A member of the RNA family "Gammaprotebacteria rimP leader" from secondary endosymbiont of Ctenarytaina eucalypti, 102 nucleotides long. Rfam classes the family as a cis-regulatory leader. The family's consensus secondary structure is taken from published work. Its family is annotated with regulation of gene expression in the Gene Ontology.
[Rfam]
RNA sequence: AGCCGCGUGCCGUUUACAGGGUCUAGGUCACAACAAGCCCCGAAAUUUCGGGGCUUGUUGUUCUUUCACUGCAGUAAUACUGGGCUAAUAAGCCCUUUUUUU
Numbered sequence: 001a002g003c004c005g006c007g008u009g010c011c012g013u014u015u016a017c018a019g020g021g022u023c024u025a026g027g028u029c030a031c032a033a034c035a036a037g038c039c040c041c042g043a044a045a046u047u048u049c050g051g052g053g054c055u056u057g058u059u060g061u062u063c064u065u066u067c068a069c070u071g072c073a074g075u076a077a078u079a080c081u082g083g084g085c086u087a088a089u090a091a092g093c094c095c096u097u098u099u100u101u102u
Stems, first nucleotide, its partner, number of pairs: 034057009082095004